This 131-nucleotide RNA sequence from Callithrix jacchus belongs to the Rfam family "Small nucleolar RNA SNORA68". U68 is a member of the H/ACA class of small nucleolar RNAs (snoRNAs) which act as guides in the the modification of uridines to pseudouridines. Rfam 15.1 lists 1,079 matches to the family in 643 species. The match comes from Rfam's covariance-model search (124 bits). The base pairs follow the family's consensus structure, which was predicted with PFOLD. For this family Rfam cites "The family of box ACA small nucleolar RNAs is defined by an evolutionarily conserved secondary structure and ubiquitous sequence elements essential for RNA accumulation" (Ganot et al., Genes Dev, 1997). Lineage of the source: Eukaryota > Metazoa > Gnathostomata > Sarcopterygii > Callithrix.

RNA sequence: CUCGCACCUAAACCCAAGAAUCAGUUUCUUGUAGCGGUGGUUUAAACAGAGGUGCAAGUAGCAAGUGAACCUCGUUGCCUUUGAGGGCCUGCGGCCAUGCCCCUCAAAGUGAAUUUGGAGGUUCUACAUCA
Numbered sequence: 001c002u003c004g005c006a007c008c009u010a011a012a013c014c015c016a017a018g019a020a021u022c023a024g025u026u027u028c029u030u031g032u033a034g035c036g037g038u039g040g041u042u043u044a045a046a047c048a049g050a051g052g053u054g055c056a057a058g059u060a061g062c063a064a065g066u067g068a069a070c071c072u073c074g075u076u077g078c079c080u081u082u083g084a085g086g087g088c089c090u091g092c093g094g095c096c097a098u099g100c101c102c103c104u105c106a107a108a109g110u111g112a113a114u115u116u117g118g119a120g121g122u123u124c125u126a127c128a129u130c131a
Stems, first nucleotide, its partner, number of pairs: 002057001004055006019042005024035003067124007079109009089099001